Notes: The record is a 118-nucleotide sequence from Halobacillus halophilus, which matches "epsC RNA" in Rfam. It scores 111 bits against the family's covariance model. The family has 30 seed sequences and 450 matches in Rfam 15.1. The family's RNA type in Rfam is cis-regulatory element.

[Rfam]
RNA sequence: AGGCGAUGUCUCCUUGCCUGUAUCAAUGGAGGCACUCGGCCAUGCUGUGGGUUGUCUUAAUAAAUAACCUUAGACGCGAGUCGUCGGUGGUGUGGCGUGAGGGCGGGUUGAAUGCCCA
Numbered sequence: 001a002g003g004c005g006a007u008g009u010c011u012c013c014u015u016g017c018c019u020g021u022a023u024c025a026a027u028g029g030a031g032g033c034a035c036u037c038g039g040c041c042a043u044g045c046u047g048u049g050g051g052u053u054g055u056c057u058u059a060a061u062a063a064a065u066a067a068c069c070u071u072a073g074a075c076g077c078g079a080g081u082c083g084u085c086g087g088u089g090g091u092g093u094g095g096c097g098u099g100a101g102g103g104c105g106g107g108u109u110g111a112a113u114g115c116c117c118a
Base pairs, nucleotide, nucleotide: 001019002018003017004016007034008033009032010031011030012029013028035101036100037099038098039096040095041094042093043092044091045090046089049070050069051068052067053066054065055064073085074084075083076082105117106116107115108114